[Rfam]
RNA sequence: CGGCAGACAGUUACCGUUUCUAGUCUGGCUUGUGGGACUCUAGAGGGAGUCAGUCUGCAACAAUAACUGGUGAGUUCUUUUCUCCAGUGUCAGUAUUUUGAUGGUGGCUCUAGACUUGCCAGAUAACA
Numbered sequence: 001c002g003g004c005a006g007a008c009a010g011u012u013a014c015c016g017u018u019u020c021u022a023g024u025c026u027g028g029c030u031u032g033u034g035g036g037a038c039u040c041u042a043g044a045g046g047g048a049g050u051c052a053g054u055c056u057g058c059a060a061c062a063a064u065a066a067c068u069g070g071u072g073a074g075u076u077c078u079u080u081u082c083u084c085c086a087g088u089g090u091c092a093g094u095a096u097u098u099u100g101a102u103g104g105u106g107g108c109u110c111u112a113g114a115c116u117u118g119c120c121a122g123a124u125a126a127c128a
Base pairs, nucleotide, nucleotide: 003058004057005056006055007054008053019044020043021042022041023040024037025036026035068121069120070119071118072117073116074115076114077113078112083107084106088103089102090101091100092099093098